Shown here is a 93-nucleotide sequence from Cronobacter sakazakii, a member of the family "Plasmid-encoded Shigella sRNA A". The match comes from Rfam's covariance-model search (98 bits). Lineage of the source: Bacteria > Pseudomonadati > Pseudomonadota > Enterobacteriaceae > Cronobacter sakazakii. By type it is a small RNA. A reference for the family is Peng et al. (2011), "An integrated approach for finding overlooked genes in Shigella", PLoS One. Pairs were carried over by alignment from the consensus structure, which was predicted with RNAfold.
RNA sequence: UGGCUGCGAAAAGAGUUUUAAUUUUUUUCAGAGACCAGACAAAAUUAUCGGUCUCAGGCGAAAGGCACAAAACGGAGAGACAUUAUGUUUGAA
Numbered sequence: 001u002g003g004c005u006g007c008g009a010a011a012a013g014a015g016u017u018u019u020a021a022u023u024u025u026u027u028u029c030a031g032a033g034a035c036c037a038g039a040c041a042a043a044a045u046u047a048u049c050g051g052u053c054u055c056a057g058g059c060g061a062a063a064g065g066c067a068c069a070a071a072a073c074g075g076a077g078a079g080a081c082a083u084u085a086u087g088u089u090u091g092a093a
Stems, first nucleotide, its partner, number of pairs: 001067002004064002007060002013055003017051002019047005073091004078086001